[Rfam]
RNA sequence: UAUAUGGUUUAGAAAAAUACUCAUAUAUAUUCUUGAUAUGGAAGAAAGUUUCUACGGUUAACCUUAAAUUAGCCACUAUGAGUGAAGAACUAUAGUAU
Numbered sequence: 001u002a003u004a005u006g007g008u009u010u011a012g013a014a015a016a017a018u019a020c021u022c023a024u025a026u027a028u029a030u031u032c033u034u035g036a037u038a039u040g041g042a043a044g045a046a047a048g049u050u051u052c053u054a055c056g057g058u059u060a061a062c063c064u065u066a067a068a069u070u071a072g073c074c075a076c077u078a079u080g081a082g083u084g085a086a087g088a089a090c091u092a093u094a095g096u097a098u
Stems, first nucleotide, its partner, number of pairs: 018084008030046005056074006
Description:
Rfam assigns this 98-nucleotide RNA sequence from Cetobacterium sp. 2A to the family "Purine riboswitch aptamer". The organism belongs to Cetobacterium, within Bacteria.